Rfam assigns this 145-nucleotide RNA from Enterovirga aerilata to the family "speF leader". About the family: This family is a putative regulatory RNA structure that is found upstream of the speF gene encoding ornithine decarboxylase in Agrobacterium tumefaciens and other alpha-proteobacteria.
[Rfam]
RNA sequence: CGUCGGCCCUCCAAAGGCCGGCACCGAAGAGGCUUGUUUCUCAUUGCCGGGCGUGCGGACGGGGUCUCCCCAUCCAAACGAAGGCAGCAUCGUCGGGACGACGGUGCCUUGUGCCGCAUCCGCGUUUCCACCGCGCGGGGCGCCA
Numbered sequence: 001c002g003u004c005g006g007c008c009c010u011c012c013a014a015a016g017g018c019c020g021g022c023a024c025c026g027a028a029g030a031g032g033c034u035u036g037u038u039u040c041u042c043a044u045u046g047c048c049g050g051g052c053g054u055g056c057g058g059a060c061g062g063g064g065u066c067u068c069c070c071c072a073u074c075c076a077a078a079c080g081a082a083g084g085c086a087g088c089a090u091c092g093u094c095g096g097g098a099c100g101a102c103g104g105u106g107c108c109u110u111g112u113g114c115c116g117c118a119u120c121c122g123c124g125u126u127u128c129c130a131c132c133g134c135g136c137g138g139g140g141c142g143c144c145a
Base pairs, nucleotide, nucleotide: 002022003021004020005019006018007017008016031048032047033046055136056135057134079095080094103120104119105118106117107116
Background
It is annotated as a cis-regulatory leader. Taxonomically the source falls in Enterovirga (Bacteria, Pseudomonadati, Hyphomicrobiales, Methylobacteriaceae). It scores 56 bits against the family's covariance model.